[Rfam]
RNA: Glycine riboswitch aptamer
RNA sequence: UUGAAAAAUCCGAGAGAGCUCUUCCGGUAGAACGGAAGCGCCGAAGGGGCAAGGAAUCAUCUGAAACUCUCAGGCACAGGAAUCGGGUUUGGACA
Numbered sequence: 001u002u003g004a005a006a007a008a009u010c011c012g013a014g015a016g017a018g019c020u021c022u023u024c025c026g027g028u029a030g031a032a033c034g035g036a037a038g039c040g041c042c043g044a045a046g047g048g049g050c051a052a053g054g055a056a057u058c059a060u061c062u063g064a065a066a067c068u069c070u071c072a073g074g075c076a077c078a079g080g081a082a083u084c085g086g087g088u089u090u091g092g093a094c095a
Base pairs, nucleotide, nucleotide: 006090007089008088009087010086011085012084013083021038022037023036024035040075041074042073043071044070047069048068049067053062054061